[Rfam]
RNA sequence: GGGCUUGAGCGGCGCGGGGCGCGCGCCUAUAUUCCGGGUGUCUCGCAGGAGACUAUGGACAUAAACGCGCUCGUAAUAAGCGGAUCGGACCCGGGGGCGGUACCCGGCGGCUCCACCAUACACCUUCGUUGGGGGAACAUGGGGCCGAAACAGGAUCGACGAACGUCUAAAGGGGUUAGCUUUGUCUCGGUGAGGUACCACCGUGAUCGGUCCGUAAAGCAUAAUUGCCAACGACAAUCGUGCUCCGGUCGCCGUUGCUGCUUAAGCAGUAACGAAGAUCGAAAUCUUAAGCCCUUGCGCCUAGCAGCGUAAGGCGGGGUUCGCAGGCACCUGGCAACAGAAGCCUGCACU
Numbered sequence: 001g002g003g004c005u006u007g008a009g010c011g012g013c014g015c016g017g018g019g020c021g022c023g024c025g026c027c028u029a030u031a032u033u034c035c036g037g038g039u040g041u042c043u044c045g046c047a048g049g050a051g052a053c054u055a056u057g058g059a060c061a062u063a064a065a066c067g068c069g070c071u072c073g074u075a076a077u078a079a080g081c082g083g084a085u086c087g088g089a090c091c092c093g094g095g096g097g098c099g100g101u102a103c104c105c106g107g108c109g110g111c112u113c114c115a116c117c118a119u120a121c122a123c124c125u126u127c128g129u130u131g132g133g134g135g136a137a138c139a140u141g142g143g144g145c146c147g148a149a150a151c152a153g154g155a156u157c158g159a160c161g162a163a164c165g166u167c168u169a170a171a172g173g174g175g176u177u178a179g180c181u182u183u184g185u186c187u188c189g190g191u192g193a194g195g196u197a198c199c200a201c202c203g204u205g206a207u208c209g210g211u212c213c214g215u216a217a218a219g220c221a222u223a224a225u226u227g228c229c230a231a232c233g234a235c236a237a238u239c240g241u242g243c244u245c246c247g248g249u250c251g252c253c254g255u256u257g258c259u260g261c262u263u264a265a266g267c268a269g270u271a272a273c274g275a276a277g278a279u280c281g282a283a284a285u286c287u288u289a290a291g292c293c294c295u296u297g298c299g300c301c302u303a304g305c306a307g308c309g310u311a312a313g314g315c316g317g318g319g320u321u322c323g324c325a326g327g328c329a330c331c332u333g334g335c336a337a338c339a340g341a342a343g344c345c346u347g348c349a350c351u
Stems, first nucleotide, its partner, number of pairs: 040053005057187005067180002069176004081165002085162003091107005108147007188203004194213002197211003317332004323348006